[Rfam]
RNA sequence: UAGAACAAUGUAGGUAAGGGAAGUCGGCAAAAUGGAUCCGUAACUUCGGGAAAAGGAUUGGCUCUGAGGGCUGGGUCGGAUGGGCUGGCGUAAGAAGCUGUUCCGGUUUUGGUGAGGACUGGGCGAGGCUUUCGGGCUUUACUCGGACCAUGCCGAGACCAGGCAGUAGACGACGUCAGCUGUGCUUGUCGUGUUUCGGCGCGGCAGCUUCGUCCGGCAACAAACAGCCAACUCAGAACUGGCACGGACUAGGGGAAUCCGACUGUCUAAUUAAAACAAAGCAUUGCGAUGGCUGUUGCUCGGUGUUGACGCAAUGUGAUUUCUGCCCAGUGCUCUGAAUGUCAAAGUGAAGAAAUUCAAUCAAGCGCGGGUAAACGGCGGGAGUAACUAUGACUCUCUUAAGGUAGCCAAAUGCCUCGUCAUCUAAUUAGUGACGCGCAUGAAUGGAUUAACGAGAUUCCCACUGUCCCUAUCUACUAUCUAGCGAAACCACAGCCAAGGGAACGGGCUUGGCA
Numbered sequence: 001u002a003g004a005a006c007a008a009u010g011u012a013g014g015u016a017a018g019g020g021a022a023g024u025c026g027g028c029a030a031a032a033u034g035g036a037u038c039c040g041u042a043a044c045u046u047c048g049g050g051a052a053a054a055g056g057a058u059u060g061g062c063u064c065u066g067a068g069g070g071c072u073g074g075g076u077c078g079g080a081u082g083g084g085c086u087g088g089c090g091u092a093a094g095a096a097g098c099u100g101u102u103c104c105g106g107u108u109u110u111g112g113u114g115a116g117g118a119c120u121g122g123g124c125g126a127g128g129c130u131u132u133c134g135g136g137c138u139u140u141a142c143u144c145g146g147a148c149c150a151u152g153c154c155g156a157g158a159c160c161a162g163g164c165a166g167u168a169g170a171c172g173a174c175g176u177c178a179g180c181u182g183u184g185c186u187u188g189u190c191g192u193g194u195u196u197c198g199g200c201g202c203g204g205c206a207g208c209u210u211c212g213u214c215c216g217g218c219a220a221c222a223a224a225c226a227g228c229c230a231a232c233u234c235a236g237a238a239c240u241g242g243c244a245c246g247g248a249c250u251a252g253g254g255g256a257a258u259c260c261g262a263c264u265g266u267c268u269a270a271u272u273a274a275a276a277c278a279a280a281g282c283a284u285u286g287c288g289a290u291g292g293c294u295g296u297u298g299c300u301c302g303g304u305g306u307u308g309a310c311g312c313a314a315u316g317u318g319a320u321u322u323c324u325g326c327c328c329a330g331u332g333c334u335c336u337g338a339a340u341g342u343c344a345a346a347g348u349g350a351a352g353a354a355a356u357u358c359a360a361u362c363a364a365g366c367g368c369g370g371g372u373a374a375a376c377g378g379c380g381g382g383a384g385u386a387a388c389u390a391u392g393a394c395u396c397u398c399u400u401a402a403g404g405u406a407g408c409c410a411a412a413u414g415c416c417u418c419g420u421c422a423u424c425u426a427a428u429u430a431g432u433g434a435c436g437c438g439c440a441u442g443a444a445u446g447g448a449u450u451a452a453c454g455a456g457a458u459u460c461c462c463a464c465u466g467u468c469c470c471u472a473u474c475u476a477c478u479a480u481c482u483a484g485c486g487a488a489a490c491c492a493c494a495g496c497c498a499a500g501g502g503a504a505c506g507g508g509c510u511u512g513g514c515a
Stems, first nucleotide, its partner, number of pairs: 001483004010477007018469003035059005044049001060240002063237006069229005075218009084180003088176004097167004103162001105160010116149002119146005125140006241245001253462007260454002264278003281317008292304004321448003325379003330376002332372004337368001340367003348359004380398006399403001419435005496513005
The family of this 515-nucleotide part of an RNA from Macrostomum lignano is "Eukaryotic large subunit ribosomal RNA".
Pairs were carried over by alignment from the consensus structure, which is taken from published work.
A search with the family's covariance model found it, with a score of 3098 bits.